[Rfam]
RNA sequence: GCCGGGAAUGCCGAAAACCGGGAUUUAAAAGAGUAGGCA
Numbered sequence: 001g002c003c004g005g006g007a008a009u010g011c012c013g014a015a016a017a018c019c020g021g022g023a024u025u026u027a028a029a030a031g032a033g034u035a036g037g038c039a
Base pairs, nucleotide, nucleotide: 002021003020004019005018010038011037012036
Dot-bracket structure: .((((....[[[.....))))..............]]].